RNA sequence: ACAGCGGAGGGACGCGACGACUCCCGACCCGUGAUGCGGUCACCAGGGUCGAGGACGAGCGGAGUGGUGAGACCGGCCCACCCCUGG
Number, nucleotide and partner (000 for none) at each position: 001a000002c086003a085004g084005c000006g082007g081008a000009g079010g078011g077012a000013c061014g060015c059016g000017a000018c000019g000020a000021c000022u055023c054024c053025c051026g050027a049028c048029c047030c000031g000032u000033g000034a000035u000036g000037c000038g074039g073040u070041c069042a068043c067044c066045a000046g000047g029048g028049u027050c026051g025052a000053g024054g023055a022056c000057g000058a000059g015060c014061g013062g000063a000064g000065u000066g044067g043068u042069g041070a040071g000072a000073c039074c038075g000076g000077c011078c010079c009080a000081c007082c006083c000084c004085u003086g002087g000
RNA: c-di-GMP-II-GAG riboswitch aptamer